[Rfam]
RNA sequence: UGCGACACCCAUCAAAAGAGUUGCUCACCAUCCAGAUCUAUUUUACCAUAUUCCAAAUUC
Numbered sequence: 001u002g003c004g005a006c007a008c009c010c011a012u013c014a015a016a017a018g019a020g021u022u023g024c025u026c027a028c029c030a031u032c033c034a035g036a037u038c039u040a041u042u043u044u045a046c047c048a049u050a051u052u053c054c055a056a057a058u059u060c
Stems, first nucleotide, its partner, number of pairs: 017044005023038001025036002

Description
This 60-nucleotide RNA from Camellia sinensis belongs to the Rfam family "Plastid-psbN 5UTR RNA". A reference for the family is Zhelyazkova et al. (2012), "The primary transcriptome of barley chloroplasts: numerous noncoding RNAs and the dominating role of the plastid-encoded RNA polymerase", Plant Cell. NCBI's taxonomy places the organism under Eukaryota, Embryophyta, Magnoliopsida, asterids, Camellia. Pairs were carried over by alignment from the consensus structure, which was predicted with LocARNA. About the family: Plastid psbN is a non-coding RNA (ncRNA) recognised in plastids. It was reported as a conserved 11 stem-loop in the prime untranslated region (5UTR) of psbN genes. The match comes from Rfam's covariance-model search (59 bits).